[Rfam]
Rfam assigns this 131-nucleotide RNA sequence from Prolemur simus to the family "Small nucleolar RNA SNORA9". The base pairs follow the family's consensus structure, which was predicted with PFOLD. Taxonomically the source falls in Prolemur (Eukaryota, Bilateria, Craniata, Mammalia).
RNA sequence: UUGCAAGCUAUCCAGCAUGCUUAGGUUUAGGGUGAUUCUGUGCAUUCCUACAGUGCUUGCUAAAGUGUUCUGAAAUGGUUUGAGGCCUUGCCCUAUCCCUCAGAGCAUAAUCAUAGACAUUUCAGACAAUU
Numbered sequence: 001u002u003g004c005a006a007g008c009u010a011u012c013c014a015g016c017a018u019g020c021u022u023a024g025g026u027u028u029a030g031g032g033u034g035a036u037u038c039u040g041u042g043c044a045u046u047c048c049u050a051c052a053g054u055g056c057u058u059g060c061u062a063a064a065g066u067g068u069u070c071u072g073a074a075a076u077g078g079u080u081u082g083a084g085g086c087c088u089u090g091c092c093c094u095a096u097c098c099c100u101c102a103g104a105g106c107a108u109a110a111u112c113a114u115a116g117a118c119a120u121u122u123c124a125g126a127c128a129a130u131u
Base pairs, nucleotide, nucleotide: 003060004059005058006057007056008055018044019043020042024037025036026035027034071124072123073122074121075120089107090106091105093103094102
The match comes from Rfam's covariance-model search (102 bits). About the family: ACA9 is a member of the H/ACA class of snoRNA that guide the sites of modification of uridines to pseudouridines. By type it is an H/ACA-box small nucleolar RNA.